[Rfam]
RNA sequence: GGCCUCCUGGUGCUUACAAGCAGCUGUGUGCUUGCAUUGACUGUACAGAAAAAAAGAGAUAGAGUAAACACACCCCGUAUACAACUCAGCCCAGGUCCUGUGCCUUGUCUAUAUUGUGAAUAGGGGGGACAUAG
Dot-bracket structure: .(.(((.(............(((..((((....))))...))).........)..))).)............((((((.........((.(.((((.....)))).).)).........)).))))........
This 134-nucleotide RNA sequence belongs to the Rfam family "Small nucleolar RNA SNORA51". From the family's description: ACA51 is a member of the H/ACA class of snoRNA that guide the sites of modification of uridines to pseudouridines. Pairs were carried over by alignment from the consensus structure, which was predicted with PFOLD. The sequence is in the family's curated seed alignment.